About this RNA
The record is a 144-nucleotide sequence from Bacillus thuringiensis, which matches "Ribosomal protein L10 leader" in Rfam. This family is a putative r-protein leader autoregulatory structure found in B. subtilis and other low-GC Gram-positive bacteria. Rfam classes the family as a cis-regulatory leader. The organism belongs to [Bacillus thuringiensis] serovar konkukian, within Bacteria.
[Rfam]
RNA sequence: GUGAAUUUAAUUAGUGUACCGUAGACAGUAGGUGUCAAUAGACUUAAUUUCCUACCUAGGUGUUAAUAUACGAAGCGGAAUUUUUUUCUGUGACUAUAUGCCUCCAUGUCUACAAGUUGGGCAUGGAGGUUUUUAGUGCACUUU
Numbered sequence: 001g002u003g004a005a006u007u008u009a010a011u012u013a014g015u016g017u018a019c020c021g022u023a024g025a026c027a028g029u030a031g032g033u034g035u036c037a038a039u040a041g042a043c044u045u046a047a048u049u050u051c052c053u054a055c056c057u058a059g060g061u062g063u064u065a066a067u068a069u070a071c072g073a074a075g076c077g078g079a080a081u082u083u084u085u086u087u088c089u090g091u092g093a094c095u096a097u098a099u100g101c102c103u104c105c106a107u108g109u110c111u112a113c114a115a116g117u118u119g120g121g122c123a124u125g126g127a128g129g130u131u132u133u134u135a136g137u138g139c140a141c142u143u144u
Stems, first nucleotide, its partner, number of pairs: 028055005034043003101129012